[Rfam]
RNA sequence: CAGGGCUGUCAAGUGUAACAGCAACUCCAUGUGGACUAGCCAUAUUUCCAGUGGAGGUGCUGUUACUUUUGAAGGCCAC
Numbered sequence: 001c002a003g004g005g006c007u008g009u010c011a012a013g014u015g016u017a018a019c020a021g022c023a024a025c026u027c028c029a030u031g032u033g034g035a036c037u038a039g040c041c042a043u044a045u046u047u048c049c050a051g052u053g054g055a056g057g058u059g060c061u062g063u064u065a066c067u068u069u070u071g072a073a074g075g076c077c078a079c
Stems, first nucleotide, its partner, number of pairs: 009072003015066008025056006032050003